[Rfam]
RNA sequence: AAAGCAGGCUGCAAUUGCAGUGCUUCGUUCUGUGGGAGUACUGCCAUUUUCCUGCUGAGAGAAACCCUGUUAAUGCUGGCUUUGGUUUCACCCCUACAGUGGUGAAACUGUGUUAUUAACAUGGACAAGA
Numbered sequence: 001a002a003a004g005c006a007g008g009c010u011g012c013a014a015u016u017g018c019a020g021u022g023c024u025u026c027g028u029u030c031u032g033u034g035g036g037a038g039u040a041c042u043g044c045c046a047u048u049u050u051c052c053u054g055c056u057g058a059g060a061g062a063a064a065c066c067c068u069g070u071u072a073a074u075g076c077u078g079g080c081u082u083u084g085g086u087u088u089c090a091c092c093c094c095u096a097c098a099g100u101g102g103u104g105a106a107a108c109u110g111u112g113u114u115a116u117u118a119a120c121a122u123g124g125a126c127a128a129g130a
Stems, first nucleotide, its partner, number of pairs: 003056006018043009065124002068121008083110010094099001
RNA: Small nucleolar RNA SNORA69